[Rfam]
Notes: Shown here is a 93-nucleotide RNA sequence from Lysinibacillus odysseyi, a member of the family "Glycine riboswitch aptamer". The pairing is the family consensus, mapped onto this sequence. Rfam 15.1 lists 9,425 matches to the family in 5,228 species. Its family is annotated with glycine biosynthetic process in the Gene Ontology. The source organism's lineage runs through Bacteria, Bacillota, Bacillaceae, Lysinibacillus and Lysinibacillus odysseyi. Its Rfam clan is "Glycine riboswitch clan".
RNA sequence: AUGAGUGUACGGGGAGAGAACGUAAUGUUGCGUCGCCGAAGGAGCAAGUAGAGAAGCUAUGAAUCUCUCAGGCAAAAAGACUCGUACAGGACG
Numbered sequence: 001a002u003g004a005g006u007g008u009a010c011g012g013g014g015a016g017a018g019a020a021c022g023u024a025a026u027g028u029u030g031c032g033u034c035g036c037c038g039a040a041g042g043a044g045c046a047a048g049u050a051g052a053g054a055a056g057c058u059a060u061g062a063a064u065c066u067c068u069c070a071g072g073c074a075a076a077a078a079g080a081c082u083c084g085u086a087c088a089g090g091a092c093g
Base pairs, nucleotide, nucleotide: 006088007087008086009085010084011083012082013081020033021032022031023030035073036072037071038069039068042067043066044065048060049059